[Rfam]
RNA: U12 minor spliceosomal RNA
RNA sequence: UUGCCUUAAACUAAUGAGUAAGGAAAACAAUGCGGGCGGUGAGAACUGGCCGCGGCACCCAUUAAACAUGGUUUUAGUGGUGCAGUAAUUUGUGGAGGGGUUAUAGGCUAGCCGAGCGUUGACGCUGCUUACUUUUGCAGAACUCGCUCUGGCGGGCCUCCCU
Dot-bracket structure: ...(((((..........)))))........((((.(((......))).)))).(((((...................)))))..............(((....(((((.(..(.(((......((((........))))....))).)...).))))).)))